[Rfam]
RNA sequence: UUUCCCAUUUGACUGCCAUGUUUUCUUUGAUAGUAGAUUUUCAUGGAUAUGCUUGUGGGAUAGAGUGAUGCUGCCGUGAUCUGAAGGAGGGGGGUUUCCUGUGUCGUCCUCCUAUAUGAAACGGCCGGACAUCAUGGG
Numbered sequence: 001u002u003u004c005c006c007a008u009u010u011g012a013c014u015g016c017c018a019u020g021u022u023u024u025c026u027u028u029g030a031u032a033g034u035a036g037a038u039u040u041u042c043a044u045g046g047a048u049a050u051g052c053u054u055g056u057g058g059g060a061u062a063g064a065g066u067g068a069u070g071c072u073g074c075c076g077u078g079a080u081c082u083g084a085a086g087g088a089g090g091g092g093g094g095u096u097u098c099c100u101g102u103g104u105c106g107u108c109c110u111c112c113u114a115u116a117u118g119a120a121a122c123g124g125c126c127g128g129a130c131a132u133c134a135u136g137g138g
Stems, first nucleotide, its partner, number of pairs: 004059004016046004073125004091113004
Shown here is a 138-nucleotide RNA from Erinaceus europaeus, a member of the family "Small nucleolar RNA SNORA29". By type it is an H/ACA-box small nucleolar RNA. ACA29 is a member of the H/ACA class of snoRNA that guide the sites of modification of uridines to pseudouridines. Its Rfam clan is "SNORA20 clan". The organism belongs to Erinaceus, within Eukaryota. Pairs were carried over by alignment from the consensus structure, which was predicted with PFOLD.